[Rfam]
RNA: Archaeal large subunit ribosomal RNA, nucleotides 424 to 862
RNA sequence: CUCUCCGAAAUAGCUUUAGGGCUAGCCUCAGAGUAAGAGUCAUGGAGGUAGAGCACUGUUUGGACUAGGGGGGCUCACGCUUUACCGAAUCCAGAUAAACUCCGAAUGCCAAGGACUCAUCUCUGGGAGUCAGACUGCGAGUGAUAAGAUCCGUAGUCGAAAGGGAAACAGCCCAGACCACCAGCUAAGGUCCCAAAGUAACUGUUAAGUGGAAAAGGAUGUGGAGUUGCAUAGACAACUAGGAUGUUGGCUUAGAAGCAGCCACCAUUCAAAGAGUGCGUAAUAGCUCACUAGUCGAGUGACUCCGCGCCGAAAAUGUACCGGGGCUAAACAGUACACCGAAGCUGUGGAUUCAAUUUUAAAAUUGAGUGGUAGGAGAGCGUUCUAAGGGCGGUGAAGGCAUACCGAAAGGAGUGUUGGAGCGCUUAGAAGUGAGAAU
Numbered sequence: 001c002u003c004u005c006c007g008a009a010a011u012a013g014c015u016u017u018a019g020g021g022c023u024a025g026c027c028u029c030a031g032a033g034u035a036a037g038a039g040u041c042a043u044g045g046a047g048g049u050a051g052a053g054c055a056c057u058g059u060u061u062g063g064a065c066u067a068g069g070g071g072g073g074c075u076c077a078c079g080c081u082u083u084a085c086c087g088a089a090u091c092c093a094g095a096u097a098a099a100c101u102c103c104g105a106a107u108g109c110c111a112a113g114g115a116c117u118c119a120u121c122u123c124u125g126g127g128a129g130u131c132a133g134a135c136u137g138c139g140a141g142u143g144a145u146a147a148g149a150u151c152c153g154u155a156g157u158c159g160a161a162a163g164g165g166a167a168a169c170a171g172c173c174c175a176g177a178c179c180a181c182c183a184g185c186u187a188a189g190g191u192c193c194c195a196a197a198g199u200a201a202c203u204g205u206u207a208a209g210u211g212g213a214a215a216a217g218g219a220u221g222u223g224g225a226g227u228u229g230c231a232u233a234g235a236c237a238a239c240u241a242g243g244a245u246g247u248u249g250g251c252u253u254a255g256a257a258g259c260a261g262c263c264a265c266c267a268u269u270c271a272a273a274g275a276g277u278g279c280g281u282a283a284u285a286g287c288u289c290a291c292u293a294g295u296c297g298a299g300u301g302a303c304u305c306c307g308c309g310c311c312g313a314a315a316a317u318g319u320a321c322c323g324g325g326g327c328u329a330a331a332c333a334g335u336a337c338a339c340c341g342a343a344g345c346u347g348u349g350g351a352u353u354c355a356a357u358u359u360u361a362a363a364a365u366u367g368a369g370u371g372g373u374a375g376g377a378g379a380g381c382g383u384u385c386u387a388a389g390g391g392c393g394g395u396g397a398a399g400g401c402a403u404a405c406c407g408a409a410a411g412g413a414g415u416g417u418u419g420g421a422g423c424g425c426u427u428a429g430a431a432g433u434g435a436g437a438a439u
Stems, first nucleotide, its partner, number of pairs: 001380006011024005026129001027127006036117002040114002043111003051103001052101002058096007066088001069085001070083005133158007141151001163174003178350003182347004189340003198337001201335005217311002221308010238295005244268003249263003269273001274289001278287002351370007381434001383431007391423002399418005405412002